[Rfam]
RNA: Group I catalytic intron
Organism: Glaucomycena venus
RNA sequence: AAAGCGGCGUGAAAGCGUUUCGCUAGUCUUUCAGUCUUAGCUGAGGGCGACACUGUCAAAUUGCGGGAAACCCCUAAAGCCUUCACCACCAAACCACUGUUGAAAAACGAGUGGUGGCCAGGGUAAUGACCUCGGGUAUGGUAAAAGCGUGAAGGAUGUAACAAUGGGCAAUCCGCAGCCAAGUCCUAAGGGUAGUAAACGACCUAUGGAUGCAGUUCAACGACUAGACGGCAGUGGGUGUUGCUUCUUGAAGCAAUGCUUAAGGUAUAGUCUACUCCCUUGCGAAAGCAAGGG
Numbered sequence: 001a002a003a004g005c006g007g008c009g010u011g012a013a014a015g016c017g018u019u020u021c022g023c024u025a026g027u028c029u030u031u032c033a034g035u036c037u038u039a040g041c042u043g044a045g046g047g048c049g050a051c052a053c054u055g056u057c058a059a060a061u062u063g064c065g066g067g068a069a070a071c072c073c074c075u076a077a078a079g080c081c082u083u084c085a086c087c088a089c090c091a092a093a094c095c096a097c098u099g100u101u102g103a104a105a106a107a108c109g110a111g112u113g114g115u116g117g118c119c120a121g122g123g124u125a126a127u128g129a130c131c132u133c134g135g136g137u138a139u140g141g142u143a144a145a146a147g148c149g150u151g152a153a154g155g156a157u158g159u160a161a162c163a164a165u166g167g168g169c170a171a172u173c174c175g176c177a178g179c180c181a182a183g184u185c186c187u188a189a190g191g192g193u194a195g196u197a198a199a200c201g202a203c204c205u206a207u208g209g210a211u212g213c214a215g216u217u218c219a220a221c222g223a224c225u226a227g228a229c230g231g232c233a234g235u236g237g238g239u240g241u242u243g244c245u246u247c248u249u250g251a252a253g254c255a256a257u258g259c260u261u262a263a264g265g266u267a268u269a270g271u272c273u274a275c276u277c278c279c280u281u282g283c284g285a286a287a288g289c290a291a292g293g294g
Base pairs, nucleotide, nucleotide: 051236052235053234054233055232057230062177063176064175065174066173067172072168073167074166178216179215183211184210185209186208191204192203193202195200220273222272223271224270225269226268238259239258240257241256242255243254244253245252246251279292280291281290282289283288